[Rfam]
RNA sequence: AGCCACUGAUGACAAAACCUUUUUUCUGACACCUCGUAUGAGAGCUCAGCUCGAGCUCCUGAUUCUAACUCGACACUGAGGCUC
Dot-bracket structure: ((((.......................................((((.....)))).......................)))).
Rfam assigns this 84-nucleotide sequence from Merluccius polli to the family "Small nucleolar RNA SNORD60". Its Rfam clan is "SNORD60 clan". The match comes from Rfam's covariance-model search (66 bits). By type it is a C/D-box small nucleolar RNA. The base pairs follow the family's consensus structure, which was predicted with PFOLD.